Shown here is a 75-nucleotide RNA from Crocodylus porosus, a member of the family "Mammalian CPEB3 ribozyme".
The base pairs follow the family's consensus structure, which is taken from published work.
RNA sequence: GUUGCAAAUUUGAGGCCAUACUAGACAUGUUUACUGCAUGGCCUGUUAAAUUCCAGUGAAUCUGAGAAAUCUGCU
Numbered sequence: 001g002u003u004g005c006a007a008a009u010u011u012g013a014g015g016c017c018a019u020a021c022u023a024g025a026c027a028u029g030u031u032u033a034c035u036g037c038a039u040g041g042c043c044u045g046u047u048a049a050a051u052u053c054c055a056g057u058g059a060a061u062c063u064g065a066g067a068a069a070u071c072u073g074c075u
Base pairs, nucleotide, nucleotide: 014043015042016041017040020075022073023072024071025070027039028038029037047064048063050061051060052059053058